The family of this 131-nucleotide sequence from Sphenodon punctatus is "Small nucleolar RNA SNORA27". Rfam links the family to the GO terms nucleolus and RNA processing. The match comes from Rfam's covariance-model search (110 bits). Pairs were carried over by alignment from the consensus structure. Its Rfam clan is "SNORA27 clan". Rfam's curators write: ACA27 is a member of the H/ACA class of snoRNA that guide the sites of modification of uridines to pseudouridines.

[Rfam]
RNA sequence: AACCCCCCUUUCACUUUGCCAGUUAGACAUCUCUUGUCUUUAUUGGUCAUUCAAGUGGGGUAAAAAAGCAUCCUUUUAAAACCCAAGCAAAUUGUUAUUAUUUGGCUUGGAUCCUGUCAGGGGAAACAGUC
Numbered sequence: 001a002a003c004c005c006c007c008c009u010u011u012c013a014c015u016u017u018g019c020c021a022g023u024u025a026g027a028c029a030u031c032u033c034u035u036g037u038c039u040u041u042a043u044u045g046g047u048c049a050u051u052c053a054a055g056u057g058g059g060g061u062a063a064a065a066a067a068g069c070a071u072c073c074u075u076u077u078a079a080a081a082c083c084c085a086a087g088c089a090a091a092u093u094g095u096u097a098u099u100a101u102u103u104g105g106c107u108u109g110g111a112u113c114c115u116g117u118c119a120g121g122g123g124a125a126a127c128a129g130u131c
Stems, first nucleotide, its partner, number of pairs: 035062005043054004071124006084109001085107001088104005